Description: The record is a 110-nucleotide RNA sequence from Candidatus Williamhamiltonella defendens, which matches "Alpha operon ribosome binding site" in Rfam. Taxonomically the source falls in Candidatus Williamhamiltonella defendens (Bacteria, Pseudomonadati, Enterobacteriaceae, aphid secondary symbionts). Rfam describes the family as follows. The bacterial alpha operon ribosome binding site is surrounded by this complex pseudoknotted structure. Translation of the mRNA produces 4 ribosomal protein products, one of which (S4) acts as a translational repressor by binding to the nested pseudoknot region. The mechanism of repression is thought to involve a conformational switch in the pseudoknot region and ribosome entrapment. It is annotated as a cis-regulatory element. The match comes from Rfam's covariance-model search (76 bits).

[Rfam]
RNA sequence: GUUUAAUGCCGUUUGAGUAUCCUGAAACGGGCUUUGAAUACAGUAUUAAUUAUAAAUAGUAGGAGUGCAUAGUGGCCCGUAUCCGUAUAGCAGGCAUUAACAUCCCUGAU
Numbered sequence: 001g002u003u004u005a006a007u008g009c010c011g012u013u014u015g016a017g018u019a020u021c022c023u024g025a026a027a028c029g030g031g032c033u034u035u036g037a038a039u040a041c042a043g044u045a046u047u048a049a050u051u052a053u054a055a056a057u058a059g060u061a062g063g064a065g066u067g068c069a070u071a072g073u074g075g076c077c078c079g080u081a082u083c084c085g086u087a088u089a090g091c092a093g094g095c096a097u098u099a100a101c102a103u104c105c106c107u108g109a110u
Stems, first nucleotide, its partner, number of pairs: 004048006011041002021094003028079004038107001